Overview: The family of this 593-nucleotide part of an RNA from Candidatus Parvarchaeum acidiphilum is "Archaeal large subunit ribosomal RNA". The sequence is in the family's curated seed alignment. The organism belongs to Candidatus Parvarchaeum acidiphilum, within Archaea.
RNA sequence: CUAAUCCAAGCUAUUAGAUGGAUGACUUGGUUCAGGAGCCGAAGAAGGACGCAGCAAGUUGCGAUAAUGAUGCGGUAGGCGCAGACGACCGUUGAUCGCAUCGUUUCUGAAUGCGUGAUGCCUAUGCGUAAGCAUAGAUUCUUUUCUUUACGGAAAGAAAGGGAACGCAGGGAACUAAAACAUUUUAGUACCUGCAGGAAAAGAAAUCAAUAGAGAUUCCCCUAGUAAUGGCGAACGAAAAGGGAAGAGGGCGAACCGAAUCUGCAGCAAUGCAGAAAUGUGGUGUGGUUAAUGGCUGUGCGGAGAAAAACAAACUUGUCUGGAAUGACGGGCCAAAGAGAGUGACAGCCUCGUAGUUUUUUAAUGCACGGUCAUCAUACAGAGUAGCAGAGGUCAAUACUCUUCUGUGAAAAUAGGUGUCAAAAACAUCUAACCCUAAAUACUACCUGAAACCGAUAGCGCAGAGUAGCGUGAGCGAAAGUUGAAAAGCACUCUCGACGAGAGGGUGAAAAGAACCUGAAAUCUAAUAGUUAUAGUUGUUGCGGCACGUUGUGAACCUGUGAAUAAAUAAACAGGCUCAAGUGUUGCAACAU
Numbered sequence: 001c002u003a004a005u006c007c008a009a010g011c012u013a014u015u016a017g018a019u020g021g022a023u024g025a026c027u028u029g030g031u032u033c034a035g036g037a038g039c040c041g042a043a044g045a046a047g048g049a050c051g052c053a054g055c056a057a058g059u060u061g062c063g064a065u066a067a068u069g070a071u072g073c074g075g076u077a078g079g080c081g082c083a084g085a086c087g088a089c090c091g092u093u094g095a096u097c098g099c100a101u102c103g104u105u106u107c108u109g110a111a112u113g114c115g116u117g118a119u120g121c122c123u124a125u126g127c128g129u130a131a132g133c134a135u136a137g138a139u140u141c142u143u144u145u146c147u148u149u150a151c152g153g154a155a156a157g158a159a160a161g162g163g164a165a166c167g168c169a170g171g172g173a174a175c176u177a178a179a180a181c182a183u184u185u186u187a188g189u190a191c192c193u194g195c196a197g198g199a200a201a202a203g204a205a206a207u208c209a210a211u212a213g214a215g216a217u218u219c220c221c222c223u224a225g226u227a228a229u230g231g232c233g234a235a236c237g238a239a240a241a242g243g244g245a246a247g248a249g250g251g252c253g254a255a256c257c258g259a260a261u262c263u264g265c266a267g268c269a270a271u272g273c274a275g276a277a278a279u280g281u282g283g284u285g286u287g288g289u290u291a292a293u294g295g296c297u298g299u300g301c302g303g304a305g306a307a308a309a310a311c312a313a314a315c316u317u318g319u320c321u322g323g324a325a326u327g328a329c330g331g332g333c334c335a336a337a338g339a340g341a342g343u344g345a346c347a348g349c350c351u352c353g354u355a356g357u358u359u360u361u362u363a364a365u366g367c368a369c370g371g372u373c374a375u376c377a378u379a380c381a382g383a384g385u386a387g388c389a390g391a392g393g394u395c396a397a398u399a400c401u402c403u404u405c406u407g408u409g410a411a412a413a414u415a416g417g418u419g420u421c422a423a424a425a426a427c428a429u430c431u432a433a434c435c436c437u438a439a440a441u442a443c444u445a446c447c448u449g450a451a452a453c454c455g456a457u458a459g460c461g462c463a464g465a466g467u468a469g470c471g472u473g474a475g476c477g478a479a480a481g482u483u484g485a486a487a488a489g490c491a492c493u494c495u496c497g498a499c500g501a502g503a504g505g506g507u508g509a510a511a512a513g514a515a516c517c518u519g520a521a522a523u524c525u526a527a528u529a530g531u532u533a534u535a536g537u538u539g540u541u542g543c544g545g546c547a548c549g550u551u552g553u554g555a556a557c558c559u560g561u562g563a564a565u566a567a568a569u570a571a572a573c574a575g576g577c578u579c580a581a582g583u584g585u586u587g588c589a590a591c592a593u
Stems, first nucleotide, its partner, number of pairs: 009532010024517001025482002029454002031451006037444002047108003050063003069102006078090002113121003139159008166197001167195005177184002207214002218245004229235001248437004256283003263274004293374004309358003315331001317330004334338001340352003387408007415431005469476002539591010553580003557576005